RNA: c-di-AMP riboswitch aptamer (ydaO/yuaA leader)
RNA sequence: AACUUAGAAUAGCCGAAUUCCCGGCACCCGGGAGACGGGGGAACCAUUUUGGGUGAAUUGAUCUCGCUACAUAAGGAUCAUAGGGAACCUUCAACCGAAUCCUCAAGCUAACCUCGCAGGCAUUGGAAGGAGUUUUA
Numbered sequence: 001a002a003c004u005u006a007g008a009a010u011a012g013c014c015g016a017a018u019u020c021c022c023g024g025c026a027c028c029c030g031g032g033a034g035a036c037g038g039g040g041g042a043a044c045c046a047u048u049u050u051g052g053g054u055g056a057a058u059u060g061a062u063c064u065c066g067c068u069a070c071a072u073a074a075g076g077a078u079c080a081u082a083g084g085g086a087a088c089c090u091u092c093a094a095c096c097g098a099a100u101c102c103u104c105a106a107g108c109u110a111a112c113c114u115c116g117c118a119g120g121c122a123u124u125g126g127a128a129g130g131a132g133u134u135u136u137a
Stems, first nucleotide, its partner, number of pairs: 012121003018034007036116005051102003059080006083096002